[Rfam]
RNA: mir-2774 microRNA precursor family
RNA sequence: GUUAAAUUCGGACCACCGGUCUACCGAGCAAUUUCACCCGCUCGGUGGAAGAUUUUGCCUUCGUCGU
Number, nucleotide and partner (000 for none) at each position: 001g000002u000003u000004a064005a000006a000007u000008u000009c000010g058011g000012a056013c000014c000015a053016c000017c051018g000019g000020u049021c048022u047023a046024c045025c044026g043027a042028g041029c040030a000031a000032u000033u000034u000035c000036a000037c000038c000039c000040g029041c028042u027043c026044g025045g024046u023047g022048g021049a020050a000051g017052a000053u015054u000055u000056u012057g000058c010059c000060u000061u000062c000063g000064u004065c000066g000067u000